[Rfam]
RNA: bantam microRNA precursor family
Organism: Rhipicephalus microplus
Nucleotides: 083
Base pairs, nucleotide, nucleotide: 009080010079011078012077013076014075016073017072018071019070020069021068022067023066024065025064028061029060030059031058032057
Number, partner (000 for none) and nucleotide at each position: 001000c002000u003000u004000u005000u006000g007000a008000g009080a010079c011078a012077a013076a014075a015000c016073u017072g018071g019070u020069u021068u022067u023066c024065a025064c026000a027000a028061u029060g030059a031058u032057c033000g034000u035000c036000c037000a038000g039000a040000u041000c042000g043000u044000g045000u046000u047000u048000c049000a050000u051000g052000u053000c054000u055000g056000a057032g058031a059030u060029c061028a062000u063000u064025g065024u066023g067022a068021a069020a070019g071018c072017u073016g074000a075014u076013u077012u078011u079010g080009u081000u082000g083000a